[Rfam]
RNA sequence: AAGAAAAGACCUUCUGCUAAUAACGUGCACGUCCUGUGCACAACGCAGAAGUCACCACAUCCUGUGGA
Numbered sequence: 001a002a003g004a005a006a007a008g009a010c011c012u013u014c015u016g017c018u019a020a021u022a023a024c025g026u027g028c029a030c031g032u033c034c035u036g037u038g039c040a041c042a043a044c045g046c047a048g049a050a051g052u053c054a055c056c057a058c059a060u061c062c063u064g065u066g067g068a
Stems, first nucleotide, its partner, number of pairs: 011051007026040005055067004
Dot-bracket structure: ..........(((((((........(((((.....)))))....)))))))...((((.....)))).
The family of this 68-nucleotide sequence from Sporolactobacillus putidus is "Bacillaceae-1 RNA".
A search with the family's covariance model found it, with a score of 64 bits.
It is annotated as a small RNA.